Source information:
The family of this 80-nucleotide RNA sequence from Chauna torquata is "Small nucleolar RNA SNORD11B". Rfam 15.1 lists 733 matches to the family in 632 species. The source organism's lineage runs through Eukaryota, Gnathostomata, Teleostomi, Amniota and Chauna. A reference for the family is Yang et al. (2006), "snoSeeker: an advanced computational package for screening of guide and orphan snoRNA genes in the human genome", Nucleic Acids Res. The family's RNA type in Rfam is C/D-box small nucleolar RNA. Rfam links the family to the GO terms nucleolus and RNA processing.

RNA sequence: UGAUGGCAGUGAUGAUUCCUAUAUUGUUGCUCUCCUGAUGAACAUGAGGGUGCACAGUCACUACCUCAUCUGAGCCAUCU
Numbered sequence: 001u002g003a004u005g006g007c008a009g010u011g012a013u014g015a016u017u018c019c020u021a022u023a024u025u026g027u028u029g030c031u032c033u034c035c036u037g038a039u040g041a042a043c044a045u046g047a048g049g050g051u052g053c054a055c056a057g058u059c060a061c062u063a064c065c066u067c068a069u070c071u072g073a074g075c076c077a078u079c080u
Base pairs, nucleotide, nucleotide: 002079003078004077005076006075007074